The family of this 112-nucleotide RNA from Sporosarcina sp. P19 is "SAM riboswitch aptamer (S box leader)". The organism belongs to Sporosarcina, within Bacteria. The base pairs follow the family's consensus structure, which is taken from published work.

RNA sequence: CUCUUAUCAAGAGCGACUGAGGGAAGAGGCCCGAUGAAGUCCAGCAACCCCUUGAAUGAAACAAGGAAGGUGCCAAAUCCUACAGCAUGGUUUUCCAUCUGAGAGAUAAGCU
Number, nucleotide and partner (000 for none) at each position: 001c000002u000003c110004u109005u108006a107007u106008c105009a000010a000011g000012a000013g042014c000015g041016a040017c039018u000019g000020a000021g032022g031023g030024a000025a000026g000027a081028g080029g079030c023031c022032c021033g000034a000035u000036g000037a000038a000039g017040u016041c015042c013043a000044g073045c072046a071047a000048c070049c069050c066051c065052u064053u063054g000055a000056a000057u000058g000059a000060a000061a000062c000063a053064a052065g051066g050067a000068a000069g049070g048071u046072g045073c044074c000075a000076a000077a000078u104079c029080c028081u027082a000083c101084a100085g099086c000087a098088u097089g096090g000091u000092u000093u000094u000095c000096c089097a088098u087099c085100u084101g083102a000103g000104a078105g008106a007107u006108a005109a004110g003111c000112u000